[Rfam]
RNA sequence: GUGUUUUUCAUAGUAUUAGAUUUAAGGUUAACAAAAGAUUGGCUGUCUGGGAUAGAUGGCCUUUUUUAUGU
Dot-bracket structure: ........................................(((((((.......)))))))..........
RNA: Bacteroidetes FopS (family of paralogous sRNAs)